[Rfam]
RNA sequence: UAACAAAGAAUUUUCCGAUCCUUUUUACCUAAGGGCGGGGGACUAUAGAGAAUUUCUCUAUAGCUUUAAGGAAAACCUUAAAGAAUACCGCCUACGGUGGAAGGACGAUAGGGUUUGGCGGGAAACGGCUAAGCCUCCCGUGUUUGGAAAGGAGAAUUUAUUAUGGAUGC
Numbered sequence: 001u002a003a004c005a006a007a008g009a010a011u012u013u014u015c016c017g018a019u020c021c022u023u024u025u026u027a028c029c030u031a032a033g034g035g036c037g038g039g040g041g042a043c044u045a046u047a048g049a050g051a052a053u054u055u056c057u058c059u060a061u062a063g064c065u066u067u068a069a070g071g072a073a074a075a076c077c078u079u080a081a082a083g084a085a086u087a088c089c090g091c092c093u094a095c096g097g098u099g100g101a102a103g104g105a106c107g108a109u110a111g112g113g114u115u116u117g118g119c120g121g122g123a124a125a126c127g128g129c130u131a132a133g134c135c136u137c138c139c140g141u142g143u144u145u146g147g148a149a150a151g152g153a154g155a156a157u158u159u160a161u162u163a164u165g166g167a168u169g170c
Base pairs, nucleotide, nucleotide: 003164006161011156012155013154014153015152016151019105020104021103022102023101024100025099027098028097029096033093034092035091036090037089038088111136112135113134114133115132116131117130118129119128121126137147138146
RNA: Molybdenum/Tungsten riboswitch aptamer (Moco RNA motif)
Organism: Candidatus Zymogenus saltonus